[Rfam]
RNA sequence: GGCUGGUCCGUGGUGUUUACAACUAAUUGAUCACAACCAGUUACAGAUUUCUUUGCUCCUUCUCCACUAGUACUGUUUCACUUGACUAGCCUUGA
Numbered sequence: 001g002g003c004u005g006g007u008c009c010g011u012g013g014u015g016u017u018u019a020c021a022a023c024u025a026a027u028u029g030a031u032c033a034c035a036a037c038c039a040g041u042u043a044c045a046g047a048u049u050u051c052u053u054u055g056c057u058c059c060u061u062c063u064c065c066a067c068u069a070g071u072a073c074u075g076u077u078u079c080a081c082u083u084g085a086c087u088a089g090c091c092u093u094g095a
Base pairs, nucleotide, nucleotide: 001091002090003089004088005087006086007085008084010083012079013078015073016072021057023055025053026052
Annotation:
The record is a 95-nucleotide sequence from Callithrix jacchus, which matches "Y RNA" in Rfam. Lineage of the source: Eukaryota > Gnathostomata > Dipnotetrapodomorpha > Theria > Callithrix.